[Rfam]
RNA: TPP riboswitch aptamer (THI element)
Organism: Chitinophaga solisilvae
RNA sequence: CAGUCACUUUAGGGGUGUUUAUCCUCAAUAAGAGGAUAAACUGAGAUGAUACCCUCAGUACCUGAAGCAGUUCAUACUGCCGUAGGGAAAAGUAACUGAACCUUC
Numbered sequence: 001c002a003g004u005c006a007c008u009u010u011a012g013g014g015g016u017g018u019u020u021a022u023c024c025u026c027a028a029u030a031a032g033a034g035g036a037u038a039a040a041c042u043g044a045g046a047u048g049a050u051a052c053c054c055u056c057a058g059u060a061c062c063u064g065a066a067g068c069a070g071u072u073c074a075u076a077c078u079g080c081c082g083u084a085g086g087g088a089a090a091a092g093u094a095a096c097u098g099a100a101c102c103u104u105c
Stems, first nucleotide, its partner, number of pairs: 006093005011055004016049001017041010061086004067080004